[Rfam]
RNA sequence: UCUGCGGACCGGGCCCCUCUGGCGAGGGCUGAACAAGCCCACGUGAUGUCGGACCGCAUCG
Numbered sequence: 001u002c003u004g005c006g007g008a009c010c011g012g013g014c015c016c017c018u019c020u021g022g023c024g025a026g027g028g029c030u031g032a033a034c035a036a037g038c039c040c041a042c043g044u045g046a047u048g049u050c051g052g053a054c055c056g057c058a059u060c061g
Stems, first nucleotide, its partner, number of pairs: 006055002009052004022044003026040004